[Rfam]
RNA: Plastid-psbA-1 3UTR RNA
RNA sequence: GUUGAAGCUCCAUCUACAAAUGGAUAAGACUUCCGUCUUAGUGUAUAUGAAUCAUUGAAGUAGCAAUACCCAAUAUCUUGCUAGAACAAGAUAUUGGGUAUUGCUCCCUUGUU
Numbered sequence: 001g002u003u004g005a006a007g008c009u010c011c012a013u014c015u016a017c018a019a020a021u022g023g024a025u026a027a028g029a030c031u032u033c034c035g036u037c038u039u040a041g042u043g044u045a046u047a048u049g050a051a052u053c054a055u056u057g058a059a060g061u062a063g064c065a066a067u068a069c070c071c072a073a074u075a076u077c078u079u080g081c082u083a084g085a086a087c088a089a090g091a092u093a094u095u096g097g098g099u100a101u102u103g104c105u106c107c108c109u110u111g112u113u
Stems, first nucleotide, its partner, number of pairs: 009024005060107001062105008071096003075092005